[Rfam]
RNA sequence: UGCACACAUAAACCCAAAGGUCAUUUCUUCCCAGUGUCAUGCCCUUGCCAUGUGUGCGAAAAGAAACCCUGAACCUUGUGGCCUUUCAUAGGCUGUAAAACGUGCCACUGAAAGUGAAAUCAAGGUGCGACAUGA
Numbered sequence: 001u002g003c004a005c006a007c008a009u010a011a012a013c014c015c016a017a018a019g020g021u022c023a024u025u026u027c028u029u030c031c032c033a034g035u036g037u038c039a040u041g042c043c044c045u046u047g048c049c050a051u052g053u054g055u056g057c058g059a060a061a062a063g064a065a066a067c068c069c070u071g072a073a074c075c076u077u078g079u080g081g082c083c084u085u086u087c088a089u090a091g092g093c094u095g096u097a098a099a100a101c102g103u104g105c106c107a108c109u110g111a112a113a114g115u116g117a118a119a120u121c122a123a124g125g126u127g128c129g130a131c132a133u134g135a
Stems, first nucleotide, its partner, number of pairs: 001058007019044002022041003027036001071128001073126005083114006091106003
RNA: Small nucleolar RNA SNORA68
Organism: Sinocyclocheilus rhinocerous